[Rfam]
RNA sequence: UCACCUUUUCUCUUGGAGACCCGGACUAACACUCCUACCGAGACUAUCCAAGUAAAAUACGUCUCUCAUACCAACUCUGGAGGGUAGAGUUGGAAUACUAUACUCA
Numbered sequence: 001u002c003a004c005c006u007u008u009u010c011u012c013u014u015g016g017a018g019a020c021c022c023g024g025a026c027u028a029a030c031a032c033u034c035c036u037a038c039c040g041a042g043a044c045u046a047u048c049c050a051a052g053u054a055a056a057a058u059a060c061g062u063c064u065c066u067c068a069u070a071c072c073a074a075c076u077c078u079g080g081a082g083g084g085u086a087g088a089g090u091u092g093g094a095a096u097a098c099u100a101u102a103c104u105c106a
Stems, first nucleotide, its partner, number of pairs: 013051005040065005071093007
Dot-bracket structure: ............(((((......................[[[[[..))))).........]]]]].....(((((((.........))))))).............
Description
Shown here is a 106-nucleotide RNA, a member of the family "PhotoRC-II RNA". The base pairs follow the family's consensus structure, which is taken from published work. The family's RNA type in Rfam is cis-regulatory element.